Description: The family of this 182-nucleotide sequence from Cephalotus follicularis is "small nucleolar RNA snoR127". Rfam links the family to the GO terms RNA processing and nucleolus. NCBI's taxonomy places the organism under Eukaryota, Viridiplantae, Spermatophyta, Mesangiospermae, Cephalotus. The family's consensus secondary structure was predicted with RNAalifold. The family's RNA type in Rfam is C/D-box small nucleolar RNA.
[Rfam]
RNA sequence: CUGGAAUGAUGUAGCUUAGCCAAAUCAGACAUUUGAUGUGCUCCAAAAGGCAUGUUCUUGAAACUUUGUUAUGGUGCUAAAGUAAUAUCUUCUAUACCCUUGAACAAGCUAUAGAUAAGAUGCCUUAUGUUGAAGCGUGUCCCCCUGAUGAUAAACUAGAGAUCGGUUGCUGUCUGACCAGA
Numbered sequence: 001c002u003g004g005a006a007u008g009a010u011g012u013a014g015c016u017u018a019g020c021c022a023a024a025u026c027a028g029a030c031a032u033u034u035g036a037u038g039u040g041c042u043c044c045a046a047a048a049g050g051c052a053u054g055u056u057c058u059u060g061a062a063a064c065u066u067u068g069u070u071a072u073g074g075u076g077c078u079a080a081a082g083u084a085a086u087a088u089c090u091u092c093u094a095u096a097c098c099c100u101u102g103a104a105c106a107a108g109c110u111a112u113a114g115a116u117a118a119g120a121u122g123c124c125u126u127a128u129g130u131u132g133a134a135g136c137g138u139g140u141c142c143c144c145c146u147g148a149u150g151a152u153a154a155a156c157u158a159g160a161g162a163u164c165g166g167u168u169g170c171u172g173u174c175u176g177a178c179c180a181g182a
Stems, first nucleotide, its partner, number of pairs: 001181004